[Rfam]
RNA sequence: GAUUUAUAAAGAAGAGGCGAGAGACAGGCUCCGCGACCCUCGGCAACCUCAACAAAGUGUUGAAAGGUGCUAAUUCCUGCCCGACAAGGGACAUAUAAAUU
Dot-bracket structure: ((((((((......(((...(((.[[[[)))......))).((((.((((((.......))))..))))))...(]]]](((.....)))..)))))))))
RNA: SAM riboswitch aptamer (S box leader)
Organism: Psychroflexus torquis